[Rfam]
RNA sequence: GGAGGUGCGUUUCAGCUGGUGCUGGGCCCGGACUUCAAAUCCGGUGAGAGUGGUUAGAAGCUGCUCUGGUAGGUUCGAUUCCUACACGCCUCC
Number, nucleotide and partner (000 for none) at each position: 001g093002g092003a091004g090005g089006u088007g087008c000009g085010u000011u026012u025013c024014a023015g022016c021017u000018g000019g000020u000021g016022c015023u014024g013025g012026g011027c000028c044029c043030g042031g041032a040033c000034u000035u000036c000037a000038a000039a000040u032041c031042c030043g029044g028045u000046g000047a067048g066049a065050g064051u063052g000053g000054u000055u000056a000057g000058a000059a000060g000061c000062u000063g051064c050065u049066c048067u047068g000069g000070u084071a083072g082073g081074u000075u000076c000077g000078a000079u000080u000081c073082c072083u071084a070085c009086a000087c007088g006089c005090c004091u003092c002093c001